[Rfam]
RNA: Ribosomal protein L19 leader
Nucleotides: 040
Base pairs, nucleotide, nucleotide: 003038004037005036006035007034008033009032013030015027016026017025018024
Number, partner (000 for none) and nucleotide at each position: 001000a002000c003038g004037a005036u006035g007034u008033u009032c010000c011000g012000c013030u014000g015027c016026a017025a018024u019000a020000u021000c022000a023000u024018a025017u026016u027015g028000g029000a030013a031000u032009g033008a034007g035006c036005g037004u038003c039000u040000g